Rfam assigns this 135-nucleotide sequence from Copsychus sechellarum to the family "Small nucleolar RNA SNORA14". About the family: ACA14 is a member of the H/ACA class of snoRNA that guide the sites of modification of uridines to pseudouridines.
[Rfam]
Nucleotides: 135
Base pairs, nucleotide, nucleotide: 003058004057005056006055007051009049016045017044018043019042020041021040023038024037025036062135063134064133069129070128073125074124084115085114086113087112089110090109092107093106
Number, partner (000 for none) and nucleotide at each position: 001000c002000u003058g004057c005056a006055u007051u008000c009049u010000a011000a012000a013000c014000c015000c016045u017044c018043c019042u020041g021040g022000c023038a024037g025036c026000a027000c028000u029000g030000c031000c032000a033000u034000u035000g036025g037024c038023u039000u040021c041020c042019a043018g044017g045016a046000u047000a048000a049009g050000a051007a052000u053000g054000a055006a056005u057004g058003c059000c060000a061000g062135a063134g064133a065000a066000a067000a068000c069129u070128g071000u072000u073125g074124a075000u076000u077000a078000a079000u080000c081000c082000a083000a084115g085114a086113u087112g088000u089110a090109g091000a092107g093106c094000u095000c096000u097000u098000c099000u100000c101000c102000c103000a104000u105000a106093g107092c108000u109090c110089u111000u112087c113086a114085u115084u116000a117000u118000u119000u120000c121000a122000c123000a124074u125073c126000u127000u128070c129069a130000a131000c132000a133064u134063u135062u
Its family is annotated with nucleolus and RNA processing in the Gene Ontology.